[Rfam]
This 69-nucleotide RNA from Tupaia belangeri belongs to the Rfam family "Small nucleolar RNA SNORD42". It scores 43 bits against the family's covariance model. By type it is a C/D-box small nucleolar RNA. The literature on the family includes a 2002 paper in Mol Cell Biol by Galardi et al., "Purified box C/D snoRNPs are able to reproduce site-specific 2'-O-methylation of target RNA in vitro". Rfam describes the family as follows. snoRNA U42 is found in intron 3 of the ribosomal protein L23a (RPL23a) gene in humans and is also present in mice. Rfam 15.1 lists 848 matches to the family in 572 species.

RNA sequence: UCCCACAAUGAUGGAAAAGAUCACUAUUGGGGGAAAAAAAUGACAUGAACAAAGAAACCACAGAUGGAA
Numbered sequence: 001u002c003c004c005a006c007a008a009u010g011a012u013g014g015a016a017a018a019g020a021u022c023a024c025u026a027u028u029g030g031g032g033g034a035a036a037a038a039a040a041u042g043a044c045a046u047g048a049a050c051a052a053a054g055a056a057a058c059c060a061c062a063g064a065u066g067g068a069a
Base pairs, nucleotide, nucleotide: 001069003067004066005065